[Rfam]
RNA sequence: AAAACAUGCCGUCGAUCUACCGAGCAAUAUCACCCGCUCGGUCGAAAAAUCUUACCUUUGUCAU
Number, nucleotide and partner (000 for none) at each position: 001a000002a000003a000004a061005c060006a059007u000008g000009c000010c000011g050012u049013c000014g000015a000016u045017c044018u000019a042020c041021c040022g039023a038024g037025c036026a000027a000028u000029a000030u000031c000032a000033c000034c000035c000036g025037c024038u023039c022040g021041g020042u019043c000044g017045a016046a000047a000048a000049a012050u011051c000052u000053u000054a000055c000056c000057u000058u000059u006060g005061u004062c000063a000064u000
RNA: mir-2774 microRNA precursor family
Organism: Bombyx mori